[Rfam]
RNA sequence: AAAUGCACUGAGUGGCCAGAUUAUUAUGAUCUUUGAAUGCAUAAUAACCUGGCCACUCAGUGUGUAU
Dot-bracket structure: ...((((((((((((((.(.((((((((...........)))))))).).))))))))))))))...
RNA: mir-9256 microRNA precursor family